[Rfam]
Nucleotides: 086
Base pairs, nucleotide, nucleotide: 009077012075013074014073015072016071017070018069019068020067024063025062027060028059029058030057031056032055033054
Number, partner (000 for none) and nucleotide at each position: 001000a002000u003000u004000u005000c006000c007000g008000g009077c010000u011000a012075c013074u014073c015072a016071c017070u018069c019068a020067a021000c022000c023000u024063g025062g026000g027060u028059g029058u030057g031056a032055u033054g034000u035000g036000u037000g038000c039000a040000c041000u042000c043000g044000u045000u046000g047000c048000u049000c050000g051000g052000c053000c054033c055032a056031u057030c058029a059028c060027a061000a062025c063024c064000u065000c066000c067020u068019u069018g070017a071016g072015u073014g074013a075012g076000c077009g078000a079000c080000c081000g082000u083000g084000g085000g086000u